Rfam assigns this 272-nucleotide part of an RNA from Palleronia marisminoris to the family "Bacterial large subunit ribosomal RNA". The base pairs follow the family's consensus structure, which is taken from published work. The literature on the family includes a 2001 paper in Science by Yusupov et al., "Crystal structure of the ribosome at 5.5 A resolution". The family is grouped with related families in Rfam's "LSU clan". The source organism's lineage runs through Bacteria, Alphaproteobacteria, Rhodobacterales, Roseobacteraceae and Palleronia.
[Rfam]
RNA sequence: GACAAACAGGGUGAGAGACCCUGUCGCCGAAAGUCCAAGGGUUCCUGCUUAAAGCUAAUCUGAGCAGGGUAAGCCGGCCCCUAAGGCGAGGCCGAAAGGCGUAGUCGAUGGGAAUCAGGUUAAUAUUCCUGAGCCAGAAGGAUGUGACGGAUCGCAGGUGUAGUUCGCUCUUAUCGGAUUGAGCGGGCUGCUGAGCGGUUCCUGGAAAUAGCCCUUCAUGAGACCGUACCCUAAACCGACACAGGUGGACUGGUAGAGAAUACCAAGGCGCU
Numbered sequence: 001g002a003c004a005a006a007c008a009g010g011g012u013g014a015g016a017g018a019c020c021c022u023g024u025c026g027c028c029g030a031a032a033g034u035c036c037a038a039g040g041g042u043u044c045c046u047g048c049u050u051a052a053a054g055c056u057a058a059u060c061u062g063a064g065c066a067g068g069g070u071a072a073g074c075c076g077g078c079c080c081c082u083a084a085g086g087c088g089a090g091g092c093c094g095a096a097a098g099g100c101g102u103a104g105u106c107g108a109u110g111g112g113a114a115u116c117a118g119g120u121u122a123a124u125a126u127u128c129c130u131g132a133g134c135c136a137g138a139a140g141g142a143u144g145u146g147a148c149g150g151a152u153c154g155c156a157g158g159u160g161u162a163g164u165u166c167g168c169u170c171u172u173a174u175c176g177g178a179u180u181g182a183g184c185g186g187g188c189u190g191c192u193g194a195g196c197g198g199u200u201c202c203u204g205g206a207a208a209u210a211g212c213c214c215u216u217c218a219u220g221a222g223a224c225c226g227u228a229c230c231c232u233a234a235a236c237c238g239a240c241a242c243a244g245g246u247g248g249a250c251u252g253g254u255a256g257a258g259a260a261u262a263c264c265a266a267g268g269c270g271c272u
Stems, first nucleotide, its partner, number of pairs: 006024006025270004033250004039230002044068006053061002075226003080111002085106003089102001091100003115132005135222001137217001140214002144212002149201004155197001160191011236245002252264004